[Rfam]
RNA: msiK RNA
RNA sequence: AGCACCCGCUCCCUUACUCGGAUCGUCCGGCACGUUCCUGCCGGUGAAGGAGAAGAUUC
Numbered sequence: 001a002g003c004a005c006c007c008g009c010u011c012c013c014u015u016a017c018u019c020g021g022a023u024c025g026u027c028c029g030g031c032a033c034g035u036u037c038c039u040g041c042c043g044g045u046g047a048a049g050g051a052g053a054a055g056a057u058u059c
Stems, first nucleotide, its partner, number of pairs: 010051003014047003027044006